[Rfam]
RNA: Ribosomal protein L10 leader
RNA sequence: UAAUCAAAAAUCAAUAAGCUGAAGACCGCAGGUGCCGAUCGCUUAAUUUCCUGCCGAGGCUGAAGAAAUAAAAACUCAAGACUCAAAGAUUAGAAAUUUUCUAUUUUUAACUCUGACUUGUUAACUUUUAAUUCUCUGCCCCGGCUCGAUGGUCGGGGUUUUUGACGGGCAAU
Numbered sequence: 001u002a003a004u005c006a007a008a009a010a011u012c013a014a015u016a017a018g019c020u021g022a023a024g025a026c027c028g029c030a031g032g033u034g035c036c037g038a039u040c041g042c043u044u045a046a047u048u049u050c051c052u053g054c055c056g057a058g059g060c061u062g063a064a065g066a067a068a069u070a071a072a073a074a075c076u077c078a079a080g081a082c083u084c085a086a087a088g089a090u091u092a093g094a095a096a097u098u099u100u101c102u103a104u105u106u107u108u109a110a111c112u113c114u115g116a117c118u119u120g121u122u123a124a125c126u127u128u129u130a131a132u133u134c135u136c137u138g139c140c141c142c143g144g145c146u147c148g149a150u151g152g153u154c155g156g157g158g159u160u161u162u163u164g165a166c167g168g169g170c171a172a173u
Stems, first nucleotide, its partner, number of pairs: 028054005034042002139158008